[Rfam]
RNA: BsrC
RNA sequence: UCUCAUUUAAACAAUGUAUUCCCUAACCACUAAUACAUCCUUGUAACCCUUUAGUUACGCCAGUGGGAUUAAACUUCAUAAAAACAAA
Numbered sequence: 001u002c003u004c005a006u007u008u009a010a011a012c013a014a015u016g017u018a019u020u021c022c023c024u025a026a027c028c029a030c031u032a033a034u035a036c037a038u039c040c041u042u043g044u045a046a047c048c049c050u051u052u053a054g055u056u057a058c059g060c061c062a063g064u065g066g067g068a069u070u071a072a073a074c075u076u077c078a079u080a081a082a083a084a085c086a087a088a
Stems, first nucleotide, its partner, number of pairs: 036067001040063002042059006
Dot-bracket structure: ...................................(...((((((((......))))))..))...).....................